[Rfam]
RNA sequence: UCGCCCACAAUGCCUUCAACGGUUUCAACACGGAUGUGGUCGGGUGUGAGUUUGUGUACACGAAUCACCGGCCAGUCGGCAUCACGCCGAAGCUCUCUCAAGGGGCAUCUGUGCUGGAGCCGUGACCGGCGUGUGCAGCACGUCCCACUGCCGGCUCCUCCUUUGGUCUCCUCGCGCUAACCCCGUAGCGUGUGGUUUUUAGCGGGCUCCAGGCCCGCUUUUUUUU
Numbered sequence: 001u002c003g004c005c006c007a008c009a010a011u012g013c014c015u016u017c018a019a020c021g022g023u024u025u026c027a028a029c030a031c032g033g034a035u036g037u038g039g040u041c042g043g044g045u046g047u048g049a050g051u052u053u054g055u056g057u058a059c060a061c062g063a064a065u066c067a068c069c070g071g072c073c074a075g076u077c078g079g080c081a082u083c084a085c086g087c088c089g090a091a092g093c094u095c096u097c098u099c100a101a102g103g104g105g106c107a108u109c110u111g112u113g114c115u116g117g118a119g120c121c122g123u124g125a126c127c128g129g130c131g132u133g134u135g136c137a138g139c140a141c142g143u144c145c146c147a148c149u150g151c152c153g154g155c156u157c158c159u160c161c162u163u164u165g166g167u168c169u170c171c172u173c174g175c176g177c178u179a180a181c182c183c184c185g186u187a188g189c190g191u192g193u194g195g196u197u198u199u200u201a202g203c204g205g206g207c208u209c210c211a212g213g214c215c216c217g218c219u220u221u222u223u224u225u226u
Stems, first nucleotide, its partner, number of pairs: 005166003019123009029113002032110006038073003044068003048061001050059002076090005093104004126154005170195002173192007201219008
The record is a 226-nucleotide sequence from Paraburkholderia dinghuensis, which matches "Burkholderia sRNA Bp1_Cand871_SIPHT" in Rfam. By type it is a small RNA. The match comes from Rfam's covariance-model search (187 bits). Its family is annotated with bacterial biofilm matrix in the Gene Ontology.